[Rfam]
RNA sequence: AAAUAAUUAAUGGGAUGCUUUCAUAUAAGUCUAGAAAUAUGGUCUAGAUGUCUCUACGAGGUUACCGUAAAUAAUCUCUCUAUGAUAGUGUGUUAGCUAUGG
Numbered sequence: 001a002a003a004u005a006a007u008u009a010a011u012g013g014g015a016u017g018c019u020u021u022c023a024u025a026u027a028a029g030u031c032u033a034g035a036a037a038u039a040u041g042g043u044c045u046a047g048a049u050g051u052c053u054c055u056a057c058g059a060g061g062u063u064a065c066c067g068u069a070a071a072u073a074a075u076c077u078c079u080c081u082a083u084g085a086u087a088g089u090g091u092g093u094u095a096g097c098u099a100u101g102g
Stems, first nucleotide, its partner, number of pairs: 018088002021085005029049007058078007
Rfam assigns this 102-nucleotide sequence from Lysinibacillus alkalisoli to the family "Purine riboswitch aptamer". The base pairs follow the family's consensus structure, which is taken from published work. Rfam describes the family as follows. Riboswitches are metabolite binding domains within certain messenger RNAs that serve as precision sensors for their corresponding targets.